[Rfam]
RNA sequence: AUGUUCCGGGCGCUGCGCCAUUCCGUCCCUCGAUGCGGCAUCCGGUUUCAGGCCCGUCCUGCGGGGACGCGUCGCCUUUCCCUGAGGCGGCGCGUC
Numbered sequence: 001a002u003g004u005u006c007c008g009g010g011c012g013c014u015g016c017g018c019c020a021u022u023c024c025g026u027c028c029c030u031c032g033a034u035g036c037g038g039c040a041u042c043c044g045g046u047u048u049c050a051g052g053c054c055c056g057u058c059c060u061g062c063g064g065g066g067a068c069g070c071g072u073c074g075c076c077u078u079u080c081c082c083u084g085a086g087g088c089g090g091c092g093c094g095u096c
Base pairs, nucleotide, nucleotide: 006045007044008043009042010041012039013038014037015036016035066096067095068094069093070092071091072090073089074088075087076086077085
The record is a 96-nucleotide RNA from Caulobacter henricii, which matches "caulobacter sRNA CC1840" in Rfam.